[Rfam]
RNA sequence: GGCGUGGGUGAUGAAAGUGUGACCUUAGGUGGGUCUUUUUGAGCCGUUUUGGCUCAAAGCUUUGGGCUUACCGAUGUUAGGACUUGUCAUAGUUACACUGACACGCA
Numbered sequence: 001g002g003c004g005u006g007g008g009u010g011a012u013g014a015a016a017g018u019g020u021g022a023c024c025u026u027a028g029g030u031g032g033g034u035c036u037u038u039u040u041g042a043g044c045c046g047u048u049u050u051g052g053c054u055c056a057a058a059g060c061u062u063u064g065g066g067c068u069u070a071c072c073g074a075u076g077u078u079a080g081g082a083c084u085u086g087u088c089a090u091a092g093u094u095a096c097a098c099u100g101a102c103a104c105g106c107a
Stems, first nucleotide, its partner, number of pairs: 002106005

This 107-nucleotide sequence from Salarias fasciatus belongs to the Rfam family "Small nucleolar RNA SNORD46". Lineage of the source: Eukaryota > Bilateria > Euacanthomorphacea > Blenniidae > Salarias. The family is grouped with related families in Rfam's "SNORD46 clan". Rfam's curators write: U40 is a C/D box small nucleolar RNA, also known as snoZ153 in plants. The human sequence has also been annotated in the sequence databases as U46. For this family Rfam cites "Intron-encoded, antisense small nucleolar RNAs: the characterization of nine novel species points to their direct role as guides for the 2'-O-ribose methylation of rRNAs" (Nicoloso et al., J Mol Biol, 1996). The family has 5 seed sequences and 723 matches in Rfam 15.1.